[Rfam]
RNA sequence: CAAUUCUGAUGGCAACAUCAGAGUGAGAUAGCUGAAGUCAACAGAAGCCAUAGUAAGCCCGAAACGAGCCGGUCGACCAUAGGCGGUAACAAAGGAAGGACUCACGAAAGGGACGAAGGGC
Number, nucleotide and partner (000 for none) at each position: 001c025002a024003a000004u023005u022006c021007u020008g019009a018010u017011g016012g000013c000014a000015a000016c011017a010018u009019c008020a007021g006022a005023g004024u002025g001026a000027g000028a000029u000030a000031g000032c000033u000034g000035a000036a000037g000038u045039c044040a000041a000042c000043a000044g039045a038046a000047g121048c120049c119050a000051u000052a000053g000054u000055a000056a000057g000058c112059c111060c110061g000062a000063a000064a000065c000066g000067a000068g000069c000070c000071g000072g000073u000074c000075g000076a000077c000078c000079a000080u000081a000082g000083g000084c000085g000086g000087u000088a000089a000090c000091a000092a000093a000094g000095g000096a000097a000098g000099g000100a000101c000102u000103c000104a000105c000106g000107a000108a000109a000110g060111g059112g058113a000114c000115g000116a000117a000118g000119g049120g048121c047
Overview: A member of the RNA family "Group II catalytic intron D1-D4-1" from Arachidicoccus ginsenosidivorans, 121 nucleotides long. NCBI's taxonomy places the organism under Bacteria, Bacteroidota, Chitinophagia, Chitinophagales, Arachidicoccus. Group II introns are found in rRNA, tRNA and mRNA of organelles in fungi, plants and protists, and also in mRNA in bacteria. Rfam links the family to the GO term Group II intron splicing. The pairing is the family consensus, mapped onto this sequence.